Rfam assigns this 98-nucleotide part of an RNA from Nanohaloarchaea archaeon H01 to the family "Archaeal large subunit ribosomal RNA". It scores 2594 bits against the family's covariance model.

[Rfam]
RNA sequence: GAUAAGGCGUGAAAGCUUCGAUACCUCUCAACGAACUCUGCGAGAGCAUUUAGUAGGACGAGGUGGAGCAACGUCUUAUCAUCCGUUUUGAAAAACGG
Dot-bracket structure: ((((((((((....((......(((((....(......(((....))).......)...)))))...)).))))))))))..((((........))))